Shown here is a 113-nucleotide RNA from Theobroma umbraticum, a member of the family "MIR5225 microRNA precursor family".
Gene Ontology terms of the family: miRNA-mediated post-transcriptional gene silencing and RISC complex.
The base pairs follow the family's consensus structure, which was predicted with RNAalifold.

RNA sequence: CGGAGGGACUCCUGUCGUAGGAGAGAUGACGCUUCCUGCCAUCAAAGAGGCAUGCAUCCCUUUUCAAUUUGAGCGGUAAGCUUCAUCUCUCCUUGACUGAAGCCCCUUCAAUU
Number, nucleotide and partner (000 for none) at each position: 001c000002g000003g000004a000005g105006g104007g103008a000009c102010u101011c000012c099013u000014g097015u096016c095017g094018u000019a093020g092021g091022a000023g089024a088025g087026a086027u085028g084029a083030c000031g000032c000033u000034u000035c000036c000037u000038g000039c000040c000041a000042u000043c000044a000045a000046a000047g000048a000049g000050g000051c000052a000053u000054g000055c000056a000057u000058c000059c000060c000061u000062u000063u000064u000065c000066a000067a000068u000069u000070u000071g000072a000073g000074c000075g000076g000077u000078a000079a000080g000081c000082u000083u029084c028085a027086u026087c025088u024089c023090u000091c021092c020093u019094u017095g016096a015097c014098u000099g012100a000101a010102g009103c007104c006105c005106c000107u000108u000109c000110a000111a000112u000113u000